[Rfam]
RNA sequence: ACUGGAGGACUGCUCAGGCUGAGUCUGAAGAGUGAGGCUCAGGUGACAGCAGCCUCCUAAAAGAAAAGGGAUGGAGAGACCCAGUCCUGCUUACAGGAGAGCAAAGGACUUGCCUGUGCCAUCCAACACUC
Numbered sequence: 001a002c003u004g005g006a007g008g009a010c011u012g013c014u015c016a017g018g019c020u021g022a023g024u025c026u027g028a029a030g031a032g033u034g035a036g037g038c039u040c041a042g043g044u045g046a047c048a049g050c051a052g053c054c055u056c057c058u059a060a061a062a063g064a065a066a067a068g069g070g071a072u073g074g075a076g077a078g079a080c081c082c083a084g085u086c087c088u089g090c091u092u093a094c095a096g097g098a099g100a101g102c103a104a105a106g107g108a109c110u111u112g113c114c115u116g117u118g119c120c121a122u123c124c125a126a127c128a129c130u131c
Base pairs, nucleotide, nucleotide: 003059004057005056006055007054008053017044019042021040022039023038024037025036026035068124069123070122079115081112083110084109085108086107087106088105092103094101

Rfam assigns this 131-nucleotide sequence from Semnornis frantzii to the family "Small Cajal body specific RNA 4".
The family's consensus secondary structure was predicted with RNAfold.
A reference for the family is Darzacq et al. (2002), "Cajal body-specific small nuclear RNAs: a novel class of 2'-O-methylation and pseudouridylation guide RNAs", EMBO J.
The organism belongs to Semnornis, within Eukaryota.
scaRNAs are a specific class of small nuclear RNAs which localise to the Cajal bodies and guide the modification of RNA polymerase II transcribed spliceosomal RNAs U1, U2, U4, U5 and U12.
Rfam 15.1 lists 634 matches to the family in 510 species.
Gene Ontology terms of the family: Cajal body, RNA processing and nucleolus.
A search with the family's covariance model found it, with a score of 69 bits.